[Rfam]
This 234-nucleotide RNA from Alteraurantiacibacter buctensis belongs to the Rfam family "permuted transfer-messenger RNA". It scores 141 bits against the family's covariance model.
RNA sequence: GGCGAUAAAUUGCGGUGUGCAAUAGGCACAGCGGACCCGGGGGCAGUACCCGGCGGCUCCACCAUCACCACCCGGUGCACGCACCGGGGCCCUGUUGUCGCAGGGGUGUUGACGGGGCCGAACCAGGAUCGACGUGUGUUGAAAAGCACUGUUUUCGCCCGGGCUGAGUAACCCGUUAAAGGCUCAAAACACACAAGUGCCAACGACAACGAAGCACUCGCUCUUGCCGCGUAA
Number, nucleotide and partner (000 for none) at each position: 001g159002g158003c157004g156005a155006u000007a000008a000009a000010u000011u000012g000013c000014g000015g149016u148017g147018u146019g000020c000021a000022a000023u000024a000025g000026g000027c138028a137029c136030a000031g135032c134033g133034g000035a000036c000037c053038c052039g051040g050041g049042g000043g000044c000045a000046g000047u000048a000049c041050c040051c039052g038053g037054c120055g119056g118057c117058u116059c115060c114061a000062c000063c000064a000065u000066c000067a000068c000069c000070a000071c000072c000073c000074g000075g000076u000077g000078c000079a000080c000081g000082c000083a000084c000085c000086g000087g000088g000089g000090c000091c000092c000093u000094g000095u000096u000097g000098u000099c000100g000101c000102a000103g000104g000105g000106g000107u000108g000109u000110u000111g000112a000113c000114g060115g059116g058117g057118c056119c055120g054121a000122a000123c000124c000125a000126g000127g000128a000129u000130c000131g000132a000133c033134g032135u031136g029137u028138g027139u000140u000141g000142a000143a000144a000145a000146g018147c017148a016149c015150u000151g000152u000153u000154u000155u005156c004157g003158c002159c001160c175161g174162g173163g172164c000165u000166g000167a000168g000169u000170a000171a000172c163173c162174c161175g160176u000177u000178a000179a000180a000181g000182g000183c000184u000185c000186a000187a000188a000189a000190c000191a000192c000193a000194c000195a000196a000197g000198u000199g000200c000201c000202a000203a000204c000205g000206a000207c000208a000209a000210c000211g000212a000213a000214g000215c000216a000217c000218u000219c000220g000221c000222u000223c000224u000225u000226g000227c000228c000229g000230c000231g000232u000233a000234a000
The family's RNA type in Rfam is non-coding RNA gene. The organism belongs to Alteraurantiacibacter, within Bacteria.